[Rfam]
RNA sequence: CUGGGCUAUGGAGACAUGUAUCCACAGACGUGGCUCGGCAUGAUGGUAGGGGCACUUUGUGCACUGGCUGGGGUGCUGACCAUUGCUAUGCCGGUUCCCGUCAUCGUCAAUAAC
Numbered sequence: 001c002u003g004g005g006c007u008a009u010g011g012a013g014a015c016a017u018g019u020a021u022c023c024a025c026a027g028a029c030g031u032g033g034c035u036c037g038g039c040a041u042g043a044u045g046g047u048a049g050g051g052g053c054a055c056u057u058u059g060u061g062c063a064c065u066g067g068c069u070g071g072g073g074u075g076c077u078g079a080c081c082a083u084u085g086c087u088a089u090g091c092c093g094g095u096u097c098c099c100g101u102c103a104u105c106g107u108c109a110a111u112a113a114c
Stems, first nucleotide, its partner, number of pairs: 002113001004111001008107004013102003018097001020095002037077004050062001

A member of the RNA family "Potassium channel RNA editing signal" from Maylandia zebra, 114 nucleotides long.
The source organism's lineage runs through Eukaryota, Bilateria, Neopterygii, Maylandia and Maylandia zebra complex.
The base pairs follow the family's consensus structure, which is taken from published work.
Rfam classes the family as a cis-regulatory element.
Rfam links the family to the GO term adenosine to inosine editing.
Rfam's curators write: This family represents a group of sequences related to the human potassium channel Kv1.1 hairpin element which directs the efficient modification of an adenosine to inosine by an adenosine deaminase acting on RNA (ADAR). The ADAR modification causes an isoleucine/valine recoding event which lies in the ion-conducting pore of the potassium channel.